[Rfam]
RNA sequence: UCCAGCAAAAGGUAAACCUGUUGAAAAGCAGGGGCACAAAGUCUCGGGUCUAAGGUUAUUAAGGGAAACAGACGGGGGGAAGAAGCUUCCGUGCGUGUUAUCCUCGUAACUAUGACGGCUGGACUGCCUGG
Numbered sequence: 001u002c003c004a005g006c007a008a009a010a011g012g013u014a015a016a017c018c019u020g021u022u023g024a025a026a027a028g029c030a031g032g033g034g035c036a037c038a039a040a041g042u043c044u045c046g047g048g049u050c051u052a053a054g055g056u057u058a059u060u061a062a063g064g065g066a067a068a069c070a071g072a073c074g075g076g077g078g079g080a081a082g083a084a085g086c087u088u089c090c091g092u093g094c095g096u097g098u099u100a101u102c103c104u105c106g107u108a109a110c111u112a113u114g115a116c117g118g119c120u121g122g123a124c125u126g127c128c129u130g131g
Stems, first nucleotide, its partner, number of pairs: 012037002017032006040125004045121003048116003055110004
RNA: c-di-GMP-I riboswitch aptamer